Shown here is a 76-nucleotide sequence from Alligator mississippiensis, a member of the family "Mammalian CPEB3 ribozyme".
[Rfam]
RNA sequence: GGUUGCAAGCUUAAGGCCGUAGCAAAAGCGCUGACAGCUCAGCCUGUCAGAUUCUAACAAAUCUGCGAAUUCUGCU
Numbered sequence: 001g002g003u004u005g006c007a008a009g010c011u012u013a014a015g016g017c018c019g020u021a022g023c024a025a026a027a028g029c030g031c032u033g034a035c036a037g038c039u040c041a042g043c044c045u046g047u048c049a050g051a052u053u054c055u056a057a058c059a060a061a062u063c064u065g066c067g068a069a070u071u072c073u074g075c076u
Stems, first nucleotide, its partner, number of pairs: 015044003021076004026071002028040001030038001048065006
Dot-bracket structure: ..............[[[...((((.(((.(.......).).]]]...((((((......))))))....)).))))